[Rfam]
RNA sequence: GGCAAUCUCGUAGGAGUGAAACUGUGAGCACAAGUGGAUUGAAUAAGAAAUUCGACGUUGCACUUGUGUUCCCAGGUCACCCCUUUGAGAUUCAC
Number, nucleotide and partner (000 for none) at each position: 001g000002g000003c000004a000005a000006u000007c089008u088009c000010g000011u000012a084013g083014g082015a000016g080017u079018g078019a077020a000021a000022c000023u000024g073025u000026g071027a070028g069029c068030a067031c066032a065033a064034g063035u062036g061037g000038a000039u000040u000041g000042a000043a000044u000045a000046a000047g000048a000049a000050a000051u000052u000053c000054g000055a000056c000057g000058u000059u000060g000061c036062a035063c034064u033065u032066g031067u030068g029069u028070u027071c026072c000073c024074a000075g000076g000077u019078c018079a017080c016081c000082c014083c013084u012085u000086u000087g000088a008089g007090a000091u000092u000093c000094a000095c000
RNA: MIR398 microRNA precursor family